A member of the RNA family "Editing element of GABA-3 exon 9" from Scophthalmus maximus, 54 nucleotides long. Taxonomically the source falls in Scophthalmus (Eukaryota, Bilateria, Teleostomi, Neoteleostei). The family's consensus secondary structure is taken from published work.
RNA sequence: AAGGUGGCCUAUGCUACAGCUAUGGACUGGUUCAUCGCUGUCUGUUACGCCUUU
Numbered sequence: 001a002a003g004g005u006g007g008c009c010u011a012u013g014c015u016a017c018a019g020c021u022a023u024g025g026a027c028u029g030g031u032u033c034a035u036c037g038c039u040g041u042c043u044g045u046u047a048c049g050c051c052u053u054u
Stems, first nucleotide, its partner, number of pairs: 001054003006051003010047002013045002016041005022035005